[Rfam]
RNA: Small nucleolar RNA SNORD69
RNA sequence: AACACAAAGCGCGUGAUGAGAAGGCACUGAAACUGACCCUGUGUGAAGUGCGUUCAGUCCAACGCUGAGCUUUGUGGC
Number, nucleotide and partner (000 for none) at each position: 001a000002a000003c076004a075005c074006a073007a072008a071009g070010c069011g000012c000013g000014u000015g000016a000017u000018g000019a000020g000021a000022a000023g000024g000025c000026a000027c000028u000029g000030a000031a000032a000033c000034u000035g000036a000037c000038c000039c000040u000041g000042u000043g000044u000045g000046a000047a000048g000049u000050g000051c000052g000053u000054u000055c000056a000057g000058u000059c000060c000061a000062a000063c000064g000065c000066u000067g000068a000069g010070c009071u008072u007073u006074g005075u004076g003077g000078c000